[Rfam]
RNA sequence: GUGAUGAUGACGAAGAAAAUCAAUGGGAUUCCCAUUGAUUUCUACGGAAAGAUGAGAUCGUAAACCAGCUACUUCUGACUCAU
Numbered sequence: 001g002u003g004a005u006g007a008u009g010a011c012g013a014a015g016a017a018a019a020u021c022a023a024u025g026g027g028a029u030u031c032c033c034a035u036u037g038a039u040u041u042c043u044a045c046g047g048a049a050a051g052a053u054g055a056g057a058u059c060g061u062a063a064a065c066c067a068g069c070u071a072c073u074u075c076u077g078a079c080u081c082a083u
Stems, first nucleotide, its partner, number of pairs: 001083004

Notes: The record is an 83-nucleotide sequence from Paspalum vaginatum, which matches "Small nucleolar RNA R12" in Rfam. Pairs were carried over by alignment from the consensus structure, which was predicted with PFOLD. The literature on the family includes a 2003 paper in Nucleic Acids Res by Chen et al., "The high diversity of snoRNAs in plants: identification and comparative study of 120 snoRNA genes from Oryza sativa". Rfam links the family to the GO terms RNA processing and nucleolus. About the family: snoR12 is a C/D box small nucleolar RNA, which acts as a methylation guide for 25S ribosomal RNA in plants. snoR12 has been alternatively named snoZ44 in Arabidopsis and snoZ131 in rice.